[Rfam]
RNA sequence: UCACCUUAUAGGACAUCCCCUGAUCAAGGAUGAUUCCAGACCUAUCGGGUGAACAACUGAAUAACUGCAGCCAGCCUACUGGAAUAGCUGGUCGCCAAUUCUGAAGCGGGAGUUAUCCCAUUCGGACGGUCGACUAUUGCCUUUUUGGCUGGUGCACG
Numbered sequence: 001u002c003a004c005c006u007u008a009u010a011g012g013a014c015a016u017c018c019c020c021u022g023a024u025c026a027a028g029g030a031u032g033a034u035u036c037c038a039g040a041c042c043u044a045u046c047g048g049g050u051g052a053a054c055a056a057c058u059g060a061a062u063a064a065c066u067g068c069a070g071c072c073a074g075c076c077u078a079c080u081g082g083a084a085u086a087g088c089u090g091g092u093c094g095c096c097a098a099u100u101c102u103g104a105a106g107c108g109g110g111a112g113u114u115a116u117c118c119c120a121u122u123c124g125g126a127c128g129g130u131c132g133a134c135u136a137u138u139g140c141c142u143u144u145u146u147g148g149c150u151g152g153u154g155c156a157c158g
Stems, first nucleotide, its partner, number of pairs: 001052005008045005014032005034084006070153006092133003096129001106121001108119003
The record is a 158-nucleotide RNA from Youngiibacter fragilis, which matches "DUF2800 RNA" in Rfam. By type it is a cis-regulatory element.